[Rfam]
RNA sequence: CUGCCUUAGGGAUGAACUAGUCCCAUAAAUUUUUCCAUCUUUCAAUCUGUUGGUCGUUUUUAUUGUUGUGACUGACAACACUGGGUGGAAAUAUC
Numbered sequence: 001c002u003g004c005c006u007u008a009g010g011g012a013u014g015a016a017c018u019a020g021u022c023c024c025a026u027a028a029a030u031u032u033u034u035c036c037a038u039c040u041u042u043c044a045a046u047c048u049g050u051u052g053g054u055c056g057u058u059u060u061u062a063u064u065g066u067u068g069u070g071a072c073u074g075a076c077a078a079c080a081c082u083g084g085g086u087g088g089a090a091a092u093a094u095c
Stems, first nucleotide, its partner, number of pairs: 034089006049076008
Background:
This 95-nucleotide sequence from Vanilla planifolia belongs to the Rfam family "Small nucleolar RNA snoR99". Rfam 15.1 lists 733 matches to the family in 222 species. Gene Ontology terms of the family: RNA processing and nucleolus. Pairs were carried over by alignment from the consensus structure, which was predicted with WAR.